[Rfam]
Nucleotides: 083
Stems, first nucleotide, its partner, number of pairs: 012037002018031005040077004047073002049069003056064002
Number, partner (000 for none) and nucleotide at each position: 001000a002000a003000a004000g005000a006000a007000u008000a009000u010000u011000a012037g013036c014000a015000a016000a017000c018031c019030u020029g021028g022027g023000g024000a025000a026000a027022c028021u029020c030019a031018g032000c033000g034000a035000c036013g037012c038000a039000a040077a041076g042075c043074u044000a045000u046000a047073g048072g049069g050068u051067c052000u053000a054000a055000a056064g057063c058000g059000a060000a061000a062000a063057g064056c065000a066000u067051g068050a069049c070000a071000g072048c073047c074043a075042g076041u077040u078000g079000c080000c081000a082000u083000u

About this RNA:
This 83-nucleotide RNA sequence from Emergencia timonensis belongs to the Rfam family "c-di-GMP-I riboswitch aptamer". The organism belongs to Emergencia, within Bacteria.